The record is a 493-nucleotide part of an RNA from Chloropicon primus, which matches "Eukaryotic large subunit ribosomal RNA" in Rfam. The source organism's lineage runs through Eukaryota, Chlorophyta, Chloropicophyceae, Chloropicales and Chloropicon.

[Rfam]
RNA sequence: UAGAACAAUGUAGAUAAGGGAAGUCGGCAAAAUAGAUCCGUAACUUCGGGAAAAGGAUUGGCUCUGAGGGUUGGGUAUAGGGGUCCGUAUCUUGACGCCCGAUGCUGUCGAUGGACUGCCAGCGCUGGCAACGGCGUAGGCGGACCGUCGCGUGCUGAAAAGUAGAAGGGUACGGAGUGCUUCGGCUUUCCCUAUACGAUGAACAACCAACUCAGAACUGGUACGGACAAGGGGAAUCCGACUGUUUAAUUAAAACAAAGCAUUGUGAUGGUCCUAAAGGAUGUUGACACAAUGUGAUUUCUGCCCAGUGCUCUGAAUGUCAAAGUGAAGAAAUUCAACCAAGCGCGGGUAAACGGCGGGAGUAACUAUGACUCUCUUAAGGUAGCCAAAUGCCUCGUCAUCUAAUUAGUGACGCGCAUGAAUGGAUUAACGAGAUUCCCACUGUCCCUAUCUACUAUCUAGCGAACCCACAGCCAAGAGAACGGGCUUGGAA
Numbered sequence: 001u002a003g004a005a006c007a008a009u010g011u012a013g014a015u016a017a018g019g020g021a022a023g024u025c026g027g028c029a030a031a032a033u034a035g036a037u038c039c040g041u042a043a044c045u046u047c048g049g050g051a052a053a054a055g056g057a058u059u060g061g062c063u064c065u066g067a068g069g070g071u072u073g074g075g076u077a078u079a080g081g082g083g084u085c086c087g088u089a090u091c092u093u094g095a096c097g098c099c100c101g102a103u104g105c106u107g108u109c110g111a112u113g114g115a116c117u118g119c120c121a122g123c124g125c126u127g128g129c130a131a132c133g134g135c136g137u138a139g140g141c142g143g144a145c146c147g148u149c150g151c152g153u154g155c156u157g158a159a160a161a162g163u164a165g166a167a168g169g170g171u172a173c174g175g176a177g178u179g180c181u182u183c184g185g186c187u188u189u190c191c192c193u194a195u196a197c198g199a200u201g202a203a204c205a206a207c208c209a210a211c212u213c214a215g216a217a218c219u220g221g222u223a224c225g226g227a228c229a230a231g232g233g234g235a236a237u238c239c240g241a242c243u244g245u246u247u248a249a250u251u252a253a254a255a256c257a258a259a260g261c262a263u264u265g266u267g268a269u270g271g272u273c274c275u276a277a278a279g280g281a282u283g284u285u286g287a288c289a290c291a292a293u294g295u296g297a298u299u300u301c302u303g304c305c306c307a308g309u310g311c312u313c314u315g316a317a318u319g320u321c322a323a324a325g326u327g328a329a330g331a332a333a334u335u336c337a338a339c340c341a342a343g344c345g346c347g348g349g350u351a352a353a354c355g356g357c358g359g360g361a362g363u364a365a366c367u368a369u370g371a372c373u374c375u376c377u378u379a380a381g382g383u384a385g386c387c388a389a390a391u392g393c394c395u396c397g398u399c400a401u402c403u404a405a406u407u408a409g410u411g412a413c414g415c416g417c418a419u420g421a422a423u424g425g426a427u428u429a430a431c432g433a434g435a436u437u438c439c440c441a442c443u444g445u446c447c448c449u450a451u452c453u454a455c456u457a458u459c460u461a462g463c464g465a466a467c468c469c470a471c472a473g474c475c476a477a478g479a480g481a482a483c484g485g486g487c488u489u490g491g492a493a
Base pairs, nucleotide, nucleotide: 001461002460003459004458010455011454012453013452014451015450016449018447019446020445035059036058037057038056039055044049060219061218063216064215065214066213067212068211069208070207071206072205073204075197076196077195078194079193080192081191082190083189084176085175086174088172089171090170091169097163098162104155105154109150110149111148112147113146114145116143118141119140120139122137123136124135125134126133127132220224232440233439234438235437236436237435238434239432240431243257244256245255260295261294262293263292264291265290266289267288271282272281273280274279299426300425301424303357304356305355308354309353310350311349312348313347315346318345319344320343326337327336328335329334358376359375360374361373362372363371377381397413398412399411400410401409474491475490476489477488478487